The family of this 435-nucleotide part of an RNA from Lusitaniella coriacea is "Bacterial large subunit ribosomal RNA". The match comes from Rfam's covariance-model search (2747 bits). The organism belongs to Lusitaniella coriacea, within Bacteria. Pairs were carried over by alignment from the consensus structure, which is taken from published work.

RNA sequence: CUCCCCGAAAUGCGUUUAGGCGCAGCGGUUGCAAGCAAGACUGGGGGGUAAAGCACUGCUUCGCUGCGGGCUGCGAGAGCGGUACCAAAGUGAGGCAAACUCAGAAUACCCAGUACGAAGAGCAGCCAGUGAGACGGUGGGGGAUAAGCUUCAUCGUCGAAAGGGAAACAGCCCAGACCGCCAGCUAAGGUCCCCAAAUAAUAGCUAAGUGAUUAAGGAGGUGGGAGUGCCCAGACAACCAGGAGGUUUGCCUAGAAGCAGCCAUCCUUGAAAGAGUGCGUAAUAGCUCACUGGUCAAGCGCUCCUGCGCCGAAAAUGAAAGGGACUAAGUUAUUUACCGAAGCUGCGGAUUGAAAUUUAUCAAUGGUAGGGGAGCGUUCUGAGGUGGGAGAAGCACUAGCGGCAAGCAGGUGUGGACGCCUCAGAAGUGAGAAU
Numbered sequence: 001c002u003c004c005c006c007g008a009a010a011u012g013c014g015u016u017u018a019g020g021c022g023c024a025g026c027g028g029u030u031g032c033a034a035g036c037a038a039g040a041c042u043g044g045g046g047g048g049u050a051a052a053g054c055a056c057u058g059c060u061u062c063g064c065u066g067c068g069g070g071c072u073g074c075g076a077g078a079g080c081g082g083u084a085c086c087a088a089a090g091u092g093a094g095g096c097a098a099a100c101u102c103a104g105a106a107u108a109c110c111c112a113g114u115a116c117g118a119a120g121a122g123c124a125g126c127c128a129g130u131g132a133g134a135c136g137g138u139g140g141g142g143g144a145u146a147a148g149c150u151u152c153a154u155c156g157u158c159g160a161a162a163g164g165g166a167a168a169c170a171g172c173c174c175a176g177a178c179c180g181c182c183a184g185c186u187a188a189g190g191u192c193c194c195c196a197a198a199u200a201a202u203a204g205c206u207a208a209g210u211g212a213u214u215a216a217g218g219a220g221g222u223g224g225g226a227g228u229g230c231c232c233a234g235a236c237a238a239c240c241a242g243g244a245g246g247u248u249u250g251c252c253u254a255g256a257a258g259c260a261g262c263c264a265u266c267c268u269u270g271a272a273a274g275a276g277u278g279c280g281u282a283a284u285a286g287c288u289c290a291c292u293g294g295u296c297a298a299g300c301g302c303u304c305c306u307g308c309g310c311c312g313a314a315a316a317u318g319a320a321a322g323g324g325a326c327u328a329a330g331u332u333a334u335u336u337a338c339c340g341a342a343g344c345u346g347c348g349g350a351u352u353g354a355a356a357u358u359u360a361u362c363a364a365u366g367g368u369a370g371g372g373g374a375g376c377g378u379u380c381u382g383a384g385g386u387g388g389g390a391g392a393a394g395c396a397c398u399a400g401c402g403g404c405a406a407g408c409a410g411g412u413g414u415g416g417a418c419g420c421c422u423c424a425g426a427a428g429u430g431a432g433a434a435u
Stems, first nucleotide, its partner, number of pairs: 001375006011024005026129001027127006036120001040114006052101002057097003061093004068086002070083005133158010163174003178349004183345003189339003198336001200335006217311002221308010238295005244268003250262002269273001274289001278287002350365005376430001378427010394414005400408002